[Rfam]
RNA sequence: UACGUGUUAUGUUAGGUGAGGCUCCUAUAUAGACAUAUGCUGAUGCCCGGAAACAUCGAGAGAUGCCAAUGGGUCAACAGAUAUUACCGGAUUAAGGUUUUAUUUAAUGCAGCUUGACAGAUUGUCUAAAGCUAUAUAGUGCUAAAACUCGGACGAUUAAAAAGUUUU
Numbered sequence: 001u002a003c004g005u006g007u008u009a010u011g012u013u014a015g016g017u018g019a020g021g022c023u024c025c026u027a028u029a030u031a032g033a034c035a036u037a038u039g040c041u042g043a044u045g046c047c048c049g050g051a052a053a054c055a056u057c058g059a060g061a062g063a064u065g066c067c068a069a070u071g072g073g074u075c076a077a078c079a080g081a082u083a084u085u086a087c088c089g090g091a092u093u094a095a096g097g098u099u100u101u102a103u104u105u106a107a108u109g110c111a112g113c114u115u116g117a118c119a120g121a122u123u124g125u126c127u128a129a130a131g132c133u134a135u136a137u138a139g140u141g142c143u144a145a146a147a148c149u150c151g152g153a154c155g156a157u158u159a160a161a162a163a164g165u166u167u168u
Base pairs, nucleotide, nucleotide: 005164007162008161010159011154012153013095015149016148017147020143021142022141025139026138027137028136029135030134031133032132039113040112041111042110045074046073047072048071049070054065055064056063057062080104081103082102083101086098087097088096116126117125

Shown here is a 168-nucleotide sequence from Clostridium luticellarii, a member of the family "M-box riboswitch aptamer (ykoK leader)". The literature on the family includes a 2010 paper in RNA Biol by Ramesh and Winkler, "Magnesium-sensing riboswitches in bacteria". Rfam 15.1 lists 1,095 matches to the family in 932 species. Pairs were carried over by alignment from the consensus structure.